[Rfam]
RNA sequence: GGACAGUGGUGAUGAUUAUGACUUUUGUCUUUAUCCUGAAAUAAUUCAUGUGGGCCUUUCAGUCACUACCUCUUCUGAACUGUCA
Number, nucleotide and partner (000 for none) at each position: 001g000002g084003a083004c082005a081006g080007u079008g000009g000010u000011g000012a000013u000014g000015a000016u000017u000018a000019u000020g000021a000022c000023u000024u000025u000026u000027g000028u000029c000030u000031u000032u000033a000034u000035c000036c000037u000038g000039a000040a000041a000042u000043a000044a000045u000046u000047c000048a000049u000050g000051u000052g000053g000054g000055c000056c000057u000058u000059u000060c000061a000062g000063u000064c000065a000066c000067u000068a000069c000070c000071u000072c000073u000074u000075c000076u000077g000078a000079a007080c006081u005082g004083u003084c002085a000

Shown here is an 85-nucleotide sequence from Neogobius melanostomus, a member of the family "Small nucleolar RNA SNORD11B". Pairs were carried over by alignment from the consensus structure, which was predicted with WAR. The family has 37 seed sequences and 733 matches in Rfam 15.1. The organism belongs to Neogobius, within Eukaryota.